[Rfam]
Shown here is a 182-nucleotide sequence from Citrifermentans bemidjiense, a member of the family "6S / SsrS RNA". The organism belongs to Citrifermentans bemidjiense, within Bacteria. Rfam 15.1 lists 5,006 matches to the family in 4,638 species. By type it is a non-coding RNA gene. Rfam's curators put it in the seed alignment.
RNA sequence: CUCUCUCUGCCCUGUCCGUGAGGUUACUAACGCCCCUGCGGAAUAAUUUAUUGAACGGGUGACUGUUUCGACCGUGGUGAGCUGCCCCAUUGCGCGGGAAUUGCCUAAAGCGGUCCACAGGAGCCCACCUGAAUGGGAACUCGCUGUGAGGCCCCCGAAACCAACGGCACGGCGGAGAGAGU
Numbered sequence: 001c002u003c004u005c006u007c008u009g010c011c012c013u014g015u016c017c018g019u020g021a022g023g024u025u026a027c028u029a030a031c032g033c034c035c036c037u038g039c040g041g042a043a044u045a046a047u048u049u050a051u052u053g054a055a056c057g058g059g060u061g062a063c064u065g066u067u068u069c070g071a072c073c074g075u076g077g078u079g080a081g082c083u084g085c086c087c088c089a090u091u092g093c094g095c096g097g098g099a100a101u102u103g104c105c106u107a108a109a110g111c112g113g114u115c116c117a118c119a120g121g122a123g124c125c126c127a128c129c130u131g132a133a134u135g136g137g138a139a140c141u142c143g144c145u146g147u148g149a150g151g152c153c154c155c156c157g158a159a160a161c162c163a164a165c166g167g168c169a170c171g172g173c174g175g176a177g178a179g180a181g182u
Stems, first nucleotide, its partner, number of pairs: 002180010013169003017166003032152003035148001036146001038144003057126003063120004070115006081104002086098003